[Rfam]
RNA: Plant signal recognition particle RNA
Nucleotides: 322
Base pairs, nucleotide, nucleotide: 001043002040003039004024005023006022007021008020009019010018029038030037031036048321049320050319051318052317053316054315055314056313057312060309061308062305063304064303070300071299072298073297074296075295078294082290083289084288085287087285088280089279090278091277092276093275098271099270100269102268103267109265110264111263112262113261114260115259117254118253120252121251122250123249124248126245127244128243129242130241131240132239133238134237136182137181138180139179140178143175144173146171147170148169149168151166152165153164154163183188190235191234192233193232194231201226202225203224208219209218210217
Number, partner (000 for none) and nucleotide at each position: 001043c002040u003039c004024g005023a006022g007021c008020u009019c010018a011000g012000u013000u014000a015000g016000c017000g018010u019009g020008g021007g022006c023005u024004u025000g026000u027000c028000a029038c030037c031036c032000a033000a034000g035000u036031g037030g038029g039003g040002g041000a042000u043001g044000a045000u046000a047000u048321g049320a050319g051318g052317u053316g054315a055314u056313g057312g058000a059000a060309c061308g062305u063304u064303g065000a066000u067000c068000u069000c070300c071299a072298g073297c074296c075295c076000a077000g078294a079000a080000g081000g082290u083289u084288g085287g086000a087285u088280g089279g090278a091277u092276u093275c094000u095000a096000u097000c098271u099270g100269g101000c102268u103267a104000a105000u106000u107000u108000c109265u110264g111263g112262c113261u114260u115259g116000c117254c118253c119000a120252u121251u122250c123249c124248a125000a126245g127244c128243u129242a130241a131240g132239a133238g134237u135000u136182g137181a138180a139179a140178c141000a142000u143175g144173a145000a146171a147170c148169u149168u150000c151166u152165c153164g154163a155000a156000c157000g158000a159000a160000g161000g162000c163154u164153u165152g166151g167000u168149g169148g170147g171146u172000c173144u174000c175143c176000u177000a178140g179139u180138u181137u182136u183188c184000u185000a186000g187000a188183g189000c190235a191234g192233a193232g194231g195000g196000u197000a198000c199000c200000g201226c202225g203224u204000a205000a206000g207000g208219c209218u210217g211000g212000c213000u214000u215000c216000a217210c218209a219208g220000a221000g222000c223000a224203g225202c226201g227000a228000c229000c230000a231194c232193c233192u234191c235190u236000c237134g238133c239132u240131c241130u242129u243128g244127g245126u246000a247000g248124u249123g250122g251121a252120a253118g254117g255000a256000u257000a258000a259115c260114a261113a262112g263111c264110u265109g266000u267103u268102g269100u270099c271098g272000c273000a274000c275093g276092a277091a278090u279089u280088c281000g282000c283000a284000u285087g286000a287085c288084c289083a290082g291000a292000g293000a294078u295075g296074g297073g298072c299071u300070g301000c302000c303064u304063a305062a306000u307000u308061u309060g310000g311000a312057c313056c314055a315054u316053c317052g318051c319050u320049u321048u322000u